[Rfam]
RNA sequence: GUUUUAGUAUAAGUGUAUCCCAUGCAAUAUUUAGGACAUAUUUACACUAAAA
Numbered sequence: 001g002u003u004u005u006a007g008u009a010u011a012a013g014u015g016u017a018u019c020c021c022a023u024g025c026a027a028u029a030u031u032u033a034g035g036a037c038a039u040a041u042u043u044a045c046a047c048u049a050a051a052a
Stems, first nucleotide, its partner, number of pairs: 006048003010044003014040003018036003022031001